[Rfam]
RNA sequence: UGUCAAGAGCUGAAGGCCAUAGCAGAAGUGCUCAUGGCAAGGCCCUGUCAGAUUCAAGUGAAACUGCAAAUUCUGCU
Numbered sequence: 001u002g003u004c005a006a007g008a009g010c011u012g013a014a015g016g017c018c019a020u021a022g023c024a025g026a027a028g029u030g031c032u033c034a035u036g037g038c039a040a041g042g043c044c045c046u047g048u049c050a051g052a053u054u055c056a057a058g059u060g061a062a063a064c065u066g067c068a069a070a071u072u073c074u075g076c077u
Stems, first nucleotide, its partner, number of pairs: 015044004021077007029039002049066003053062003
Rfam assigns this 77-nucleotide RNA sequence from Crocodylus porosus to the family "Mammalian CPEB3 ribozyme". It scores 53 bits against the family's covariance model. NCBI's taxonomy places the organism under Eukaryota, Gnathostomata, Tetrapoda, Archelosauria, Crocodylus.